RNA: DUF3800-VIII RNA
Organism: Clostridium botulinum
RNA sequence: AAUACUCUGUAUUAACCGAAUAUCUAAGUUUAUACUUGGAUGUCUUGUAGGUUGUAUGGGGUAUU
Dot-bracket structure: ((((((((((((..(((...(((((((((....))))))))).......))).))))))))))))
Numbered sequence: 001a002a003u004a005c006u007c008u009g010u011a012u013u014a015a016c017c018g019a020a021u022a023u024c025u026a027a028g029u030u031u032a033u034a035c036u037u038g039g040a041u042g043u044c045u046u047g048u049a050g051g052u053u054g055u056a057u058g059g060g061g062u063a064u065u
Stems, first nucleotide, its partner, number of pairs: 001065012015052003021042009